A member of the RNA family "Acido-Lenti-1 RNA" from Prosthecobacter vanneervenii, 46 nucleotides long. It is annotated as a small RNA. The family has 87 seed sequences and 2,607 matches in Rfam 15.1.
RNA sequence: CCCAGGGCUUGCGCCCUGGGCUUGACUCCUGCGGGCCUUUGGCCCG
Numbered sequence: 001c002c003c004a005g006g007g008c009u010u011g012c013g014c015c016c017u018g019g020g021c022u023u024g025a026c027u028c029c030u031g032c033g034g035g036c037c038u039u040u041g042g043c044c045c046g
Stems, first nucleotide, its partner, number of pairs: 001020008033045005